Description
Purine riboswitch aptamer: a 102-nucleotide sequence from Pseudoneobacillus rhizosphaerae. Pairs were carried over by alignment from the consensus structure, which is taken from published work. The source organism's lineage runs through Bacteria, Bacillota, Bacilli, Bacillaceae and Pseudoneobacillus. Riboswitches are metabolite binding domains within certain messenger RNAs that serve as precision sensors for their corresponding targets.
Nucleotides: 102
Stems, first nucleotide, its partner, number of pairs: 018088008029049001031047005058078007
Number, partner (000 for none) and nucleotide at each position: 001000c002000u003000u004000u005000a006000a007000u008000a009000a010000g011000a012000u013000g014000c015000a016000u017000u018088c019087a020086c021085u022084c023083a024082u025081a026000u027000a028000a029049u030000c031047g032046c033045g034044g035043g036000g037000a038000u039000a040000u041000g042000g043035c044034c045033u046032g047031c048000a049029a050000g051000u052000u053000u054000c055000u056000a057000c058078c059077g060076g061075a062074g063073u064072a065000c066000c067000g068000u069000a070000a071000a072064u073063a074062c075061u076060c077059u078058g079000a080000c081025u082024a083023u084022g085021a086020g087019u088018g089000a090000g091000c092000a093000a094000u095000g096000u097000g098000g099000a100000a101000u102000c